[Rfam]
This 105-nucleotide RNA sequence from Maledivibacter halophilus belongs to the Rfam family "SAM riboswitch aptamer (S box leader)".
Gene Ontology term of the family: regulation of gene expression.
RNA sequence: CUCUUAUCGAGAGUGACGGAGGGGUCUGGCCCUGUGAAGUCCGGCAACCAGUACAAUUAUGUACAAUGGUGCUAAAUCCAGCGGUAUUACACCGGCAGAUGAGAA
Numbered sequence: 001c002u003c004u005u006a007u008c009g010a011g012a013g014u015g016a017c018g019g020a021g022g023g024g025u026c027u028g029g030c031c032c033u034g035u036g037a038a039g040u041c042c043g044g045c046a047a048c049c050a051g052u053a054c055a056a057u058u059a060u061g062u063a064c065a066a067u068g069g070u071g072c073u074a075a076a077u078c079c080a081g082c083g084g085u086a087u088u089a090c091a092c093c094g095g096c097a098g099a100u101g102a103g104a105a
Stems, first nucleotide, its partner, number of pairs: 002104007013042001015041003021032003026081004043073004048069002051064003077097001082094004